[Rfam]
RNA: Small nucleolar RNA SNORA42/SNORA80 family
RNA sequence: GUGUGAUGAUGUAUUAUGGUUGGUCAUUCCCUGUGGGCCUCUCACAGUGUACCGAUGCCAGAGUAAAUUGUAGUCUCAAACUAUUACCCAGCCCCCUUCCCUGUGGGCUGUGAGACUGAAGGGGGUUGUACAGUG
Numbered sequence: 001g002u003g004u005g006a007u008g009a010u011g012u013a014u015u016a017u018g019g020u021u022g023g024u025c026a027u028u029c030c031c032u033g034u035g036g037g038c039c040u041c042u043c044a045c046a047g048u049g050u051a052c053c054g055a056u057g058c059c060a061g062a063g064u065a066a067a068u069u070g071u072a073g074u075c076u077c078a079a080a081c082u083a084u085u086a087c088c089c090a091g092c093c094c095c096c097u098u099c100c101c102u103g104u105g106g107g108c109u110g111u112g113a114g115a116c117u118g119a120a121g122g123g124g125g126u127u128g129u130a131c132a133g134u135g
Base pairs, nucleotide, nucleotide: 001058002057003056004055005053007051008050014047015046017044018043019042022039023038024036025035071128072127073126074125075124076123082118083117088112089110090109091108092107093106094105